[Rfam]
Rfam assigns this 95-nucleotide sequence from Camellia sinensis to the family "MIR535 microRNA precursor family". Lineage of the source: Eukaryota > Streptophyta > Euphyllophyta > Mesangiospermae > Camellia sinensis. A reference for the family is Zeng et al. (2010), "Conservation and divergence of microRNAs and their functions in Euphorbiaceous plants", Nucleic Acids Res. Its family is annotated with RISC complex and miRNA-mediated post-transcriptional gene silencing in the Gene Ontology.
RNA sequence: AUGAUUGCUUGACGAUGAGAGAGAGCACGCUUGUCAUCAUUCAUGCAUGAGGCAUGAUUAUAUACAGGAGUGCUCUCUAUCGUCGUCAUGCUAUU
Numbered sequence: 001a002u003g004a005u006u007g008c009u010u011g012a013c014g015a016u017g018a019g020a021g022a023g024a025g026c027a028c029g030c031u032u033g034u035c036a037u038c039a040u041u042c043a044u045g046c047a048u049g050a051g052g053c054a055u056g057a058u059u060a061u062a063u064a065c066a067g068g069a070g071u072g073c074u075c076u077c078u079a080u081c082g083u084c085g086u087c088a089u090g091c092u093a094u095u
Stems, first nucleotide, its partner, number of pairs: 010088005016082002020078002023075001025073004030068005